[Rfam]
RNA: mir-7147 microRNA precursor family
RNA sequence: UGUACCAUGCUGGUAGCCAGUAUGAAAUAGGGCUUGCUGGUAACCAGCGUUGUGCCCC
Numbered sequence: 001u002g003u004a005c006c007a008u009g010c011u012g013g014u015a016g017c018c019a020g021u022a023u024g025a026a027a028u029a030g031g032g033c034u035u036g037c038u039g040g041u042a043a044c045c046a047g048c049g050u051u052g053u054g055c056c057c058c
Stems, first nucleotide, its partner, number of pairs: 002055004007050008016041007024033001